[Rfam]
RNA sequence: UUGUACUGGCUUGCGCUUCCCCUGUGCUCAGCUGCUCCAGGGUAGUGUGGCAGCACACACAGCAAUAUCCCUCUCUGUUUAGUAAGGUCAGCCUGAGAAUAGGGCUGGCUCCUAUAGGCACAAGAGGAUAAC
Numbered sequence: 001u002u003g004u005a006c007u008g009g010c011u012u013g014c015g016c017u018u019c020c021c022c023u024g025u026g027c028u029c030a031g032c033u034g035c036u037c038c039a040g041g042g043u044a045g046u047g048u049g050g051c052a053g054c055a056c057a058c059a060c061a062g063c064a065a066u067a068u069c070c071c072u073c074u075c076u077g078u079u080u081a082g083u084a085a086g087g088u089c090a091g092c093c094u095g096a097g098a099a100u101a102g103g104g105c106u107g108g109c110u111c112c113u114a115u116a117g118g119c120a121c122a123a124g125a126g127g128a129u130a131a132c
Stems, first nucleotide, its partner, number of pairs: 002057003006053003010050002017045002020042005070127005077119004086110004092103004
Small Cajal body specific RNA 11: a 132-nucleotide RNA from Otolemur garnettii. For this family Rfam cites "Cajal body-specific small nuclear RNAs: a novel class of 2'-O-methylation and pseudouridylation guide RNAs" (Darzacq et al., EMBO J, 2002). Rfam's curators write: scaRNAs are a specific class of small nuclear RNAs which localise to the Cajal bodies and guide the modification of RNA polymerase II transcribed spliceosomal RNAs U1, U2, U4, U5 and U12. Pairs were carried over by alignment from the consensus structure, which was predicted with RNAalifold.